A member of the RNA family "L17-Actino-Proteobacteria ribosomal protein leader" from Streptomyces hoynatensis, 60 nucleotides long. Taxonomically the source falls in Streptomyces (Bacteria, Actinomycetota, Kitasatosporales, Streptomycetaceae). By type it is a cis-regulatory leader. A search with the family's covariance model found it, with a score of 55 bits. For this family Rfam cites "Discovery of 20 novel ribosomal leader candidates in bacteria and archaea" (Eckert and Weinberg, BMC Microbiol, 2020). The family's consensus secondary structure is taken from published work.
RNA sequence: CCCGCGGGGGAGGCCCCCCGGGGGACCAGCUGACACCGGUACCUGACACGGCCGGUGCGG
Numbered sequence: 001c002c003c004g005c006g007g008g009g010g011a012g013g014c015c016c017c018c019c020g021g022g023g024g025a026c027c028a029g030c031u032g033a034c035a036c037c038g039g040u041a042c043c044u045g046a047c048a049c050g051g052c053c054g055g056u057g058c059g060g
Stems, first nucleotide, its partner, number of pairs: 001024003005020005030060003034057007